[Rfam]
RNA: Alphaproteobacteria transfer-messenger RNA
RNA sequence: UUAUUCCGUCUUCGAAUCCGUCCGUGCUACACUGCGCUCGCCGGGCAACCGGCUAUGGAACUAAACGCCUCACAGAAUAAGCGUUACGGACCCGGGGGCGGUACCCGGCGCCUCCACCACUAUCCCGCCGUUCCGGUUCAUGAGCGGCUUUGUGGGGGCGAAAUAGGAUCGACGUGCGUAGUAAAGGUCAGGCUUGUUCUCGGUAUGAGUGCGACCGUCCAUCAGGCUCAAACACACUAAGUGCCAACGAUAACAUCGCUGUCACCGAAAAUGUUGCUCUCGCCGCCUAACGGCCGCUAGAGUAAUUUGAUUCGCGGUCCGGGGGCACCGGGCAACAGAACGCCCCCACU
Numbered sequence: 001u002u003a004u005u006c007c008g009u010c011u012u013c014g015a016a017u018c019c020g021u022c023c024g025u026g027c028u029a030c031a032c033u034g035c036g037c038u039c040g041c042c043g044g045g046c047a048a049c050c051g052g053c054u055a056u057g058g059a060a061c062u063a064a065a066c067g068c069c070u071c072a073c074a075g076a077a078u079a080a081g082c083g084u085u086a087c088g089g090a091c092c093c094g095g096g097g098g099c100g101g102u103a104c105c106c107g108g109c110g111c112c113u114c115c116a117c118c119a120c121u122a123u124c125c126c127g128c129c130g131u132u133c134c135g136g137u138u139c140a141u142g143a144g145c146g147g148c149u150u151u152g153u154g155g156g157g158g159c160g161a162a163a164u165a166g167g168a169u170c171g172a173c174g175u176g177c178g179u180a181g182u183a184a185a186g187g188u189c190a191g192g193c194u195u196g197u198u199c200u201c202g203g204u205a206u207g208a209g210u211g212c213g214a215c216c217g218u219c220c221a222u223c224a225g226g227c228u229c230a231a232a233c234a235c236a237c238u239a240a241g242u243g244c245c246a247a248c249g250a251u252a253a254c255a256u257c258g259c260u261g262u263c264a265c266c267g268a269a270a271a272u273g274u275u276g277c278u279c280u281c282g283c284c285g286c287c288u289a290a291c292g293g294c295c296g297c298u299a300g301a302g303u304a305a306u307u308u309g310a311u312u313c314g315c316g317g318u319c320c321g322g323g324g325g326c327a328c329c330g331g332g333c334a335a336c337a338g339a340a341c342g343c344c345c346c347c348a349c350u
Base pairs, nucleotide, nucleotide: 040053041052042051043050044049057200058199059198060197061196067193068192069191070190072188073187082178083177084176086175087174088173092108093107094106095105096104109160110159111158112157113156114155115154116153117152201217202216203215204214206230207229208228210226315330316329317328318327321347322346323345324344325343326342